[Rfam]
RNA sequence: AAAAAAAGAGGAAAUCACUAGUUUGACAGUCUUAACAGCCAUUAGGACUGAGAAAAUUCAACUUUCAUUUUAAACUACUC
Dot-bracket structure: ((((...............................................................)))).........
Numbered sequence: 001a002a003a004a005a006a007a008g009a010g011g012a013a014a015u016c017a018c019u020a021g022u023u024u025g026a027c028a029g030u031c032u033u034a035a036c037a038g039c040c041a042u043u044a045g046g047a048c049u050g051a052g053a054a055a056a057u058u059c060a061a062c063u064u065u066c067a068u069u070u071u072a073a074a075c076u077a078c079u080c
Stems, first nucleotide, its partner, number of pairs: 001071004
This 80-nucleotide sequence from Platysternon megacephalum belongs to the Rfam family "Small nucleolar RNA SNORD19".
NCBI's taxonomy places the organism under Eukaryota, Deuterostomia, Craniata, Gnathostomata, Platysternon.
The family is grouped with related families in Rfam's "SNORD19 clan".
On this family, see Huttenhofer et al., EMBO J 2001: "RNomics: an experimental approach that identifies 201 candidates for novel, small, non-messenger RNAs in mouse".
By type it is a C/D-box small nucleolar RNA.
It scores 36 bits against the family's covariance model.